[Rfam]
Nucleotides: 035
Stems, first nucleotide, its partner, number of pairs: 003020003010034003
Number, partner (000 for none) and nucleotide at each position: 001000a002000c003020g004019g005018g006000g007000g008000a009000a010034g011033c012032u013000g014000a015000a016000a017000a018005c019004c020003c021000a022000a023000a024000a025000c026000a027000g028000a029000g030000u031000a032012a033011g034010c035000a
Rfam assigns this 35-nucleotide sequence from Draconibacterium sediminis to the family "DUF805b RNA".
By type it is a cis-regulatory element.